RNA: Bacterial small subunit ribosomal RNA, nucleotides 1 to 566
RNA sequence: UAAUUGAAGAGUUUGAUCAUGGCUCAGAUUGAACGCUGGCGGCAGGCCUAACACAUGCAAGUCGAGCGGUAACACAAGGGAGCUUGCUUCUGAGGUGACGAGCGGCGGACGGGUGAGUAAUGCCUAGGUAUCUGCCCAGUCGAGGGGGAUAACAGUUGGAAACGACUGCUAAUACCGCAUACGCCCUACGGGGGAAAGGAGGGGACCUUCGGGCCUUCCGCGAUUGGAUGAACCUAGGUGGGAUUAGCUAGUUGGUGAGGUAAUGGCUCACCAAGGCGACGAUCCCUAGCUGGUCUGAGAGGAUGAUCAGCCACACUGGAACUGAGACACGGUCCAGACUCCUACGGGAGGCAGCAGUGGGGAAUAUUGCACAAUGGGCGAAAGCCUGAUGCAGCCAUGCCGCGUGUGUGAAGAAGGCCUUCGGGUUGUAAAGCACUUUCAGCGAGGAGGAAAGCUCAAGCGUUAAUAGCGUUUGGGUGUGACGUUACUCGCAGAAGAAGCACCGGCUAACUUCGUGCCAGCAGCCGCGGUAAUACGAGGGGUGCAAGCGUUAAUCGGAAUUACUG
Numbered sequence: 001u002a003a004u005u006g007a008a009g010a011g012u013u014u015g016a017u018c019a020u021g022g023c024u025c026a027g028a029u030u031g032a033a034c035g036c037u038g039g040c041g042g043c044a045g046g047c048c049u050a051a052c053a054c055a056u057g058c059a060a061g062u063c064g065a066g067c068g069g070u071a072a073c074a075c076a077a078g079g080g081a082g083c084u085u086g087c088u089u090c091u092g093a094g095g096u097g098a099c100g101a102g103c104g105g106c107g108g109a110c111g112g113g114u115g116a117g118u119a120a121u122g123c124c125u126a127g128g129u130a131u132c133u134g135c136c137c138a139g140u141c142g143a144g145g146g147g148g149a150u151a152a153c154a155g156u157u158g159g160a161a162a163c164g165a166c167u168g169c170u171a172a173u174a175c176c177g178c179a180u181a182c183g184c185c186c187u188a189c190g191g192g193g194g195a196a197a198g199g200a201g202g203g204g205a206c207c208u209u210c211g212g213g214c215c216u217u218c219c220g221c222g223a224u225u226g227g228a229u230g231a232a233c234c235u236a237g238g239u240g241g242g243a244u245u246a247g248c249u250a251g252u253u254g255g256u257g258a259g260g261u262a263a264u265g266g267c268u269c270a271c272c273a274a275g276g277c278g279a280c281g282a283u284c285c286c287u288a289g290c291u292g293g294u295c296u297g298a299g300a301g302g303a304u305g306a307u308c309a310g311c312c313a314c315a316c317u318g319g320a321a322c323u324g325a326g327a328c329a330c331g332g333u334c335c336a337g338a339c340u341c342c343u344a345c346g347g348g349a350g351g352c353a354g355c356a357g358u359g360g361g362g363a364a365u366a367u368u369g370c371a372c373a374a375u376g377g378g379c380g381a382a383a384g385c386c387u388g389a390u391g392c393a394g395c396c397a398u399g400c401c402g403c404g405u406g407u408g409u410g411a412a413g414a415a416g417g418c419c420u421u422c423g424g425g426u427u428g429u430a431a432a433g434c435a436c437u438u439u440c441a442g443c444g445a446g447g448a449g450g451a452a453a454g455c456u457c458a459a460g461c462g463u464u465a466a467u468a469g470c471g472u473u474u475g476g477g478u479g480u481g482a483c484g485u486u487a488c489u490c491g492c493a494g495a496a497g498a499a500g501c502a503c504c505g506g507c508u509a510a511c512u513u514c515g516u517g518c519c520a521g522c523a524g525c526c527g528c529g530g531u532a533a534u535a536c537g538a539g540g541g542g543u544g545c546a547a548g549c550g551u552u553a554a555u556c557g558g559a560a561u562u563a564c565u566g
Base pairs, nucleotide, nucleotide: 009025010024011023012022013021027556028555029554030553032552033551034550035549036548037547039403040402041401042400043399044398045396046395047361052359053358054357056356057355058354061106062105063104066103067102069099070098072089075086076085077084078083113314114313115312122239123238124237125236126235127234128233129232131231132230136227137226138225139224140223141222142221144178146176147175153168154167155166156165157164158163184193185192186191198219199218200217201216202215203214240286241285242284247277248276249275252274253273254272255271256270257269258268259267289311290310291309292308293304294303295302296301316337317336318335319334320333339350340349341348342347367393369392370391371390375388376387377386378385379384406436407435408434409433416427417426418425419424440497442492443491444490445489446488450483455477456476457475458474459473460472461471500545501544502543503542504541511540512539513538514537515536521528522527